[Rfam]
RNA sequence: AAUAACUUCAUACGAAUUCCUUAUAUAUCUAUGGUGAUAUGGACCAUAAGUCUCUACCUGGCAGCCGUAAAGUGCCGGACUAUAAGGAAAGUCCAUGCUAUA
Numbered sequence: 001a002a003u004a005a006c007u008u009c010a011u012a013c014g015a016a017u018u019c020c021u022u023a024u025a026u027a028u029c030u031a032u033g034g035u036g037a038u039a040u041g042g043a044c045c046a047u048a049a050g051u052c053u054c055u056a057c058c059u060g061g062c063a064g065c066c067g068u069a070a071a072g073u074g075c076c077g078g079a080c081u082a083u084a085a086g087g088a089a090a091g092u093c094c095a096u097g098c099u100a101u102a
Stems, first nucleotide, its partner, number of pairs: 018088008030048006058078006
This 102-nucleotide sequence from Rossellomorea vietnamensis belongs to the Rfam family "Purine riboswitch aptamer".